[Rfam]
pan motif: an 88-nucleotide RNA from Bacillus sp. 1NLA3E. The base pairs follow the family's consensus structure, which is taken from published work. The family's RNA type in Rfam is cis-regulatory element.

RNA sequence: UGGGCAGUAUCAAAUAAGAACUGUACCGUGUUUAUCAAAUUUUAAUAAUAGGUAUCUGCCUAGAUCCUAAACGGACCGGGACAGAGGG
Numbered sequence: 001u002g003g004g005c006a007g008u009a010u011c012a013a014a015u016a017a018g019a020a021c022u023g024u025a026c027c028g029u030g031u032u033u034a035u036c037a038a039a040u041u042u043u044a045a046u047a048a049u050a051g052g053u054a055u056c057u058g059c060c061u062a063g064a065u066c067c068u069a070a071a072c073g074g075a076c077c078g079g080g081a082c083a084g085a086g087g088g
Base pairs, nucleotide, nucleotide: 001028002027003026004024005023006022007021008020010019011018056084057083058082059080060079061078063076065075066074067073